[Rfam]
RNA sequence: CUGGCCGGACACGACUGGCGCGGGUGGGUCACCACCGGGGAGUGACGUCGGGAGCAUCGACCGCCUGGGUGCUCCUC
Numbered sequence: 001c002u003g004g005c006c007g008g009a010c011a012c013g014a015c016u017g018g019c020g021c022g023g024g025u026g027g028g029u030c031a032c033c034a035c036c037g038g039g040g041a042g043u044g045a046c047g048u049c050g051g052g053a054g055c056a057u058c059g060a061c062c063g064c065c066u067g068g069g070u071g072c073u074c075c076u077c
Stems, first nucleotide, its partner, number of pairs: 003049003008046001010044003015039002017065004024035004054072005
Source information
This 77-nucleotide RNA sequence from Actinoplanes philippinensis belongs to the Rfam family "ZMP/ZTP riboswitch aptamer (pfl RNA motif)".